[Rfam]
Source information
U2 spliceosomal RNA: a 192-nucleotide RNA sequence from Volvox africanus. Rfam describes the family as follows. U2 is a small nuclear RNA (snRNA) component of the spliceosome (involved in pre-mRNA splicing). The match comes from Rfam's covariance-model search (86 bits). Rfam classes the family as a spliceosomal small nuclear RNA. Gene Ontology terms of the family: U2 snRNP, mRNA branch site recognition and pre-mRNA branch point binding. Lineage of the source: Eukaryota > Viridiplantae > core chlorophytes > Chlorophyceae > Volvox.
RNA sequence: UUGCCUUUACGGCCUUCUUGACUCUGAUCAUGUGAAAUAUCUGUUCUUACAAGCUUAAUCGCUCAUACGGUUCUCGUUGUGAACCUGCGAUUAACUUCAAUAUUUCACGGGGCCUUGUCAAUGGUGAGCUUGCUCACUAGACUCGCCAGCAUAGUUGCGGCCUUACACUACCGCCACAGCCGUGCACCCGCC
Numbered sequence: 001u002u003g004c005c006u007u008u009a010c011g012g013c014c015u016u017c018u019u020g021a022c023u024c025u026g027a028u029c030a031u032g033u034g035a036a037a038u039a040u041c042u043g044u045u046c047u048u049a050c051a052a053g054c055u056u057a058a059u060c061g062c063u064c065a066u067a068c069g070g071u072u073c074u075c076g077u078u079g080u081g082a083a084c085c086u087g088c089g090a091u092u093a094a095c096u097u098c099a100a101u102a103u104u105u106c107a108c109g110g111g112g113c114c115u116u117g118u119c120a121a122u123g124g125u126g127a128g129c130u131u132g133c134u135c136a137c138u139a140g141a142c143u144c145g146c147c148a149g150c151a152u153a154g155u156u157g158c159g160g161c162c163u164u165a166c167a168c169u170a171c172c173g174c175c176a177c178a179g180c181c182g183u184g185c186a187c188c189c190g191c192c
Stems, first nucleotide, its partner, number of pairs: 007027003011023002014020001048067002052063002069085005075079001112146002117142003125136004149185004154180001156178002159175003